[Rfam]
RNA sequence: GAUAAAGGGUGUGAGAGACACCCUCGCCGAAAGUCCAAGGGUUCCUGCUUAAAGUUAAUCUGAGCAGGGUGAGCCGGCCCCUAAGGCGAGGCCGAAAGGCGUAGUCGAUGGGAACCACGCGAACAAUCGUGGGCCUGGUGGAGAGUGACGGAUCCCGUGUGUUGUGAGGUCUUAUUGGAUUGAUCUUGCAGCGAAGGGGUUCCUGGAAAUAGCCCCACCGAAUAGACCGUACCCGAAACCGACACAGGUGGACUGGUAGAGCAUACCAAGGCGCU
Numbered sequence: 001g002a003u004a005a006a007g008g009g010u011g012u013g014a015g016a017g018a019c020a021c022c023c024u025c026g027c028c029g030a031a032a033g034u035c036c037a038a039g040g041g042u043u044c045c046u047g048c049u050u051a052a053a054g055u056u057a058a059u060c061u062g063a064g065c066a067g068g069g070u071g072a073g074c075c076g077g078c079c080c081c082u083a084a085g086g087c088g089a090g091g092c093c094g095a096a097a098g099g100c101g102u103a104g105u106c107g108a109u110g111g112g113a114a115c116c117a118c119g120c121g122a123a124c125a126a127u128c129g130u131g132g133g134c135c136u137g138g139u140g141g142a143g144a145g146u147g148a149c150g151g152a153u154c155c156c157g158u159g160u161g162u163u164g165u166g167a168g169g170u171c172u173u174a175u176u177g178g179a180u181u182g183a184u185c186u187u188g189c190a191g192c193g194a195a196g197g198g199g200u201u202c203c204u205g206g207a208a209a210u211a212g213c214c215c216c217a218c219c220g221a222a223u224a225g226a227c228c229g230u231a232c233c234c235g236a237a238a239c240c241g242a243c244a245c246a247g248g249u250g251g252a253c254u255g256g257u258a259g260a261g262c263a264u265a266c267c268a269a270g271g272c273g274c275u
Base pairs, nucleotide, nucleotide: 006024007023008022009021010020011019025273026272027271028270033253034252035251036250039233040232044068045067046066047065048064049063053061054060075229076228077227080111081110085106086105087104089102091100092099093098115132116131117130118129119128135225136224137219138218141216143214146211150202151201152200153199156198158196161192162191163190164189165188166187167186168185169184170183171182239248240247255267256266257265258264

Shown here is a 275-nucleotide part of an RNA from Aureimonas endophytica, a member of the family "Bacterial large subunit ribosomal RNA". The base pairs follow the family's consensus structure, which is taken from published work. It scores 2643 bits against the family's covariance model. NCBI's taxonomy places the organism under Bacteria, Pseudomonadati, Alphaproteobacteria, Aurantimonadaceae, Aureimonas.